[Rfam]
RNA sequence: AAACCGCCCCUUAAGUUUUGCAACUGUGCCAGUUUUGGUCCCCAAGGUCAAUUUUUGGAAGAAAAAAAAAUAACACGUGGACUUAGGGUGCCACAUCAACGUAGACCGAGUCAAAAUUGACAUUGGGGACCAAAACUGCCACAGAUGCAAAACUUAGGGGGCGGUUU
Numbered sequence: 001a002a003a004c005c006g007c008c009c010c011u012u013a014a015g016u017u018u019u020g021c022a023a024c025u026g027u028g029c030c031a032g033u034u035u036u037g038g039u040c041c042c043c044a045a046g047g048u049c050a051a052u053u054u055u056u057g058g059a060a061g062a063a064a065a066a067a068a069a070a071u072a073a074c075a076c077g078u079g080g081a082c083u084u085a086g087g088g089u090g091c092c093a094c095a096u097c098a099a100c101g102u103a104g105a106c107c108g109a110g111u112c113a114a115a116a117u118u119g120a121c122a123u124u125g126g127g128g129a130c131c132a133a134a135a136c137u138g139c140c141a142c143a144g145a146u147g148c149a150a151a152a153c154u155u156a157g158g159g160g161g162c163g164g165u166u167u
Stems, first nucleotide, its partner, number of pairs: 001167002004164005012156011024144005030138016075096001078093003
Rfam assigns this 167-nucleotide sequence from Medicago truncatula to the family "MIR2619 microRNA precursor family". The base pairs follow the family's consensus structure, which was predicted with RNAalifold.